[Rfam]
RNA sequence: UGGACCAAUGAUGAUGGCUGGUGGCGUAUGACUCGUGGUUGAUGAUUACGUGUCUGGAACUCUGAGGUCCAG
Numbered sequence: 001u002g003g004a005c006c007a008a009u010g011a012u013g014a015u016g017g018c019u020g021g022u023g024g025c026g027u028a029u030g031a032c033u034c035g036u037g038g039u040u041g042a043u044g045a046u047u048a049c050g051u052g053u054c055u056g057g058a059a060c061u062c063u064g065a066g067g068u069c070c071a072g
Stems, first nucleotide, its partner, number of pairs: 002070005
RNA: Small nucleolar RNA SNORD113/SNORD114 family
Organism: Lynx pardinus